[Rfam]
RNA sequence: UGAAAGUGUACCUAGGGUUCCGACGAAUGAUGGCAUUUGUGCUGGUCCAAGUGGUACAGGCAUAGGAUAUAUGCUACACCGAUAGGAUAAAAGCCUGGGCGGG
Dot-bracket structure: ......((((((..((...(((((((((......)))))).).)).))....))))))((((((.....)))))).(.[....(((.......))).)..]..
The record is a 103-nucleotide RNA sequence from Alkaliphilus oremlandii, which matches "Guanidine-I riboswitch aptamer" in Rfam. The family has 100 seed sequences and 1,509 matches in Rfam 15.1. The match comes from Rfam's covariance-model search (64 bits). Rfam links the family to the GO term regulation of gene expression.